[Rfam]
RNA sequence: AGUAAUAUCAAAUUGGGUGGGCUAUUUUCUAGUCUGUAGCCAAGGCCAGGGGUCCUCAAGAUUGCCACCUAAAUGAGGGCUGCC
Numbered sequence: 001a002g003u004a005a006u007a008u009c010a011a012a013u014u015g016g017g018u019g020g021g022c023u024a025u026u027u028u029c030u031a032g033u034c035u036g037u038a039g040c041c042a043a044g045g046c047c048a049g050g051g052g053u054c055c056u057c058a059a060g061a062u063u064g065c066c067a068c069c070u071a072a073a074u075g076a077g078g079g080c081u082g083c084c
Stems, first nucleotide, its partner, number of pairs: 002083003008078002012074003016070002018067002021065002024062001026060003032053004037048001039046001
The family of this 84-nucleotide RNA sequence from Propithecus coquereli is "mir-571 microRNA precursor family". The source organism's lineage runs through Eukaryota, Euteleostomi, Strepsirrhini, Lemuriformes and Propithecus. The match comes from Rfam's covariance-model search (45 bits).